[Rfam]
RNA sequence: GAGCGAAGUUCCCAGCAGAGGGGUGAAAAUGCUCUGGAAUUGAGGCCCCUCUAACAAUAAUCCAAAACUACUUCGCAGAGUAAUCUGCCGAAUCGUAGGAUGCCCAUUACUAUCUAUUUUUGGAGCAUCUGGAACCCUCGGCUAAAUUUAU
Numbered sequence: 001g002a003g004c005g006a007a008g009u010u011c012c013c014a015g016c017a018g019a020g021g022g023g024u025g026a027a028a029a030u031g032c033u034c035u036g037g038a039a040u041u042g043a044g045g046c047c048c049c050u051c052u053a054a055c056a057a058u059a060a061u062c063c064a065a066a067a068c069u070a071c072u073u074c075g076c077a078g079a080g081u082a083a084u085c086u087g088c089c090g091a092a093u094c095g096u097a098g099g100a101u102g103c104c105c106a107u108u109a110c111u112a113u114c115u116a117u118u119u120u121u122g123g124a125g126c127a128u129c130u131g132g133a134a135c136c137c138u139c140g141g142c143u144a145a146a147u148u149u150a151u
Stems, first nucleotide, its partner, number of pairs: 003076007011020001013018001025051002032044003036040001087142005099129002102126002104123003109118001